[Rfam]
RNA: mir-320 microRNA precursor family
Organism: Prolemur simus
RNA sequence: CUGCAAUAAGGCCCACUCUUCCCGGUUCUUCUGGAGUCGGGAAAAGCUGGGUUGAGAGGGCAAAAAACAAAAAAA
Number, nucleotide and partner (000 for none) at each position: 001c000002u000003g000004c000005a000006a000007u000008a000009a000010g000011g000012c000013c000014c058015a000016c056017u055018c054019u000020u000021c051022c050023c049024g048025g047026u000027u000028c000029u043030u042031c041032u039033g038034g000035a000036g000037u000038c033039g032040g000041g031042a030043a029044a000045a000046g000047c025048u024049g023050g022051g021052u000053u000054g018055a017056g016057a000058g014059g000060g000061c000062a000063a000064a000065a000066a000067a000068c000069a000070a000071a000072a000073a000074a000075a000